[Rfam]
RNA sequence: UUCUUAUCCAGAGAGGUGGAGGGACUGGCCCAAGGAAGCCUCGGCAACAGACUUAUUUGAUUAAGUACUGUGCCAAUUCCAGUAGCGUAAUUGCUAGAAGAUGAGAA
Numbered sequence: 001u002u003c004u005u006a007u008c009c010a011g012a013g014a015g016g017u018g019g020a021g022g023g024a025c026u027g028g029c030c031c032a033a034g035g036a037a038g039c040c041u042c043g044g045c046a047a048c049a050g051a052c053u054u055a056u057u058u059g060a061u062u063a064a065g066u067a068c069u070g071u072g073c074c075a076a077u078u079c080c081a082g083u084a085g086c087g088u089a090a091u092u093g094c095u096a097g098a099a100g101a102u103g104a105g106a107a
Base pairs, nucleotide, nucleotide: 001107002106003105004104005103006102007101008100013042014041015040016039017038021031022030023029025082026081027080028079043074044073045072046071048070049069051066052065053064078099083096084095085094086093
The family of this 107-nucleotide RNA from Oceanobacillus iheyensis is "SAM riboswitch aptamer (S box leader)". The base pairs follow the family's consensus structure, which is taken from published work. Rfam links the family to the GO term regulation of gene expression. It is one of the family's seed sequences.